RNA sequence: AAUAAAUCAAGGCCAUGCGAUACCACGGGCCAUUGAAAUUCAGGCUCGGCGGUUUUCAUUUCAGGCGAGGGGACCGACGGAUCGUUCGUUACUCCAUGAGUGGCGAGCGGUCUGUGGUUCCAGU
Numbered sequence: 001a002a003u004a005a006a007u008c009a010a011g012g013c014c015a016u017g018c019g020a021u022a023c024c025a026c027g028g029g030c031c032a033u034u035g036a037a038a039u040u041c042a043g044g045c046u047c048g049g050c051g052g053u054u055u056u057c058a059u060u061u062c063a064g065g066c067g068a069g070g071g072g073a074c075c076g077a078c079g080g081a082u083c084g085u086u087c088g089u090u091a092c093u094c095c096a097u098g099a100g101u102g103g104c105g106a107g108c109g110g111u112c113u114g115u116g117g118u119u120c121c122a123g124u
Stems, first nucleotide, its partner, number of pairs: 013028002016025002029066003034063005070121006077115018
A member of the RNA family "Rhizobiales sRNA Atu_L6" from Agrobacterium fabrum, 124 nucleotides long.
The base pairs follow the family's consensus structure, which was predicted with WAR.
The literature on the family includes a 2012 paper in RNA Biol by Wilms et al., "Deep sequencing uncovers numerous small RNAs on all four replicons of the plant pathogen Agrobacterium tumefaciens".
Rfam classes the family as a small RNA.
The source organism's lineage runs through Bacteria, Pseudomonadati, Alphaproteobacteria, Agrobacterium tumefaciens complex and Agrobacterium fabrum.